[Rfam]
About this RNA: This 77-nucleotide sequence belongs to the Rfam family "DUF3800-IX RNA". The family's RNA type in Rfam is small RNA. Actinobacteria, Firmicutes (1 example), Nitrospirae, Proteobacteria, Verrucomicrobia (1 example).
RNA sequence: UCUUUGUGUUCGAACGGUCACCGUAGGGUGUGCCUGCCUUUUGAAUCAAUCUCCUUAGGCUAGAACACAAAGCACUA
Numbered sequence: 001u002c003u004u005u006g007u008g009u010u011c012g013a014a015c016g017g018u019c020a021c022c023g024u025a026g027g028g029u030g031u032g033c034c035u036g037c038c039u040u041u042u043g044a045a046u047c048a049a050u051c052u053c054c055u056u057a058g059g060c061u062a063g064a065a066c067a068c069a070a071a072g073c074a075c076u077a
Stems, first nucleotide, its partner, number of pairs: 002072010016034003019030004036060004